[Rfam]
Notes: Rfam assigns this 65-nucleotide RNA sequence from Hibiscus syriacus to the family "Small nucleolar RNA U49". For this family Rfam cites "Multiple snoRNA gene clusters from Arabidopsis" (Brown et al., RNA, 2001). By type it is a C/D-box small nucleolar RNA.

RNA sequence: UCCAAAUGAGGAAGACAUCCCAUAGAUAGGAAGUGCCCUAUGACACUUUAAUCAGCAGCGGCAAC
Numbered sequence: 001u002c003c004a005a006a007u008g009a010g011g012a013a014g015a016c017a018u019c020c021c022a023u024a025g026a027u028a029g030g031a032a033g034u035g036c037c038c039u040a041u042g043a044c045a046c047u048u049u050a051a052u053c054a055g056c057a058g059c060g061g062c063a064a065c
Base pairs, nucleotide, nucleotide: 014059030049031048032047033046034045035044
It scores 64 bits against the family's covariance model.